A member of the RNA family "MIR7502 microRNA precursor family" from Gossypium klotzschianum, 142 nucleotides long.
A search with the family's covariance model found it, with a score of 81 bits.
Taxonomically the source falls in Gossypium (Eukaryota, Tracheophyta, Spermatophyta, Mesangiospermae).
RNA sequence: UGUUAAAAAUUUCAUUCAUUUCUACUGGUAAAACUGGAAUGACUAACAAAGAUAAUUAAACAGUAACAUAUGAUAUGUCACAUAUACCUCAUGGUUUACAAGAAUCAAUUUUUAAAAGAAAAAAUGGAUGAAAAUUUUAACA
Number, nucleotide and partner (000 for none) at each position: 001u000002g141003u140004u139005a138006a137007a136008a135009a000010u133011u132012u131013c130014a129015u128016u127017c000018a125019u124020u123021u122022c000023u120024a000025c118026u117027g000028g000029u114030a113031a112032a111033a110034c000035u000036g000037g000038a000039a000040u000041g000042a000043c000044u000045a000046a000047c000048a000049a000050a000051g000052a000053u000054a000055a000056u000057u000058a000059a000060a000061c000062a000063g000064u000065a000066a000067c000068a000069u000070a000071u000072g000073a000074u000075a000076u000077g000078u000079c000080a000081c000082a000083u000084a000085u000086a000087c000088c000089u000090c000091a000092u000093g000094g000095u000096u000097u000098a000099c000100a000101a000102g000103a000104a000105u000106c000107a000108a000109u000110u033111u032112u031113u030114a029115a000116a000117a026118g025119a000120a023121a000122a021123a020124a019125u018126g000127g016128a015129u014130g013131a012132a011133a010134a000135u008136u007137u006138u005139a004140a003141c002142a000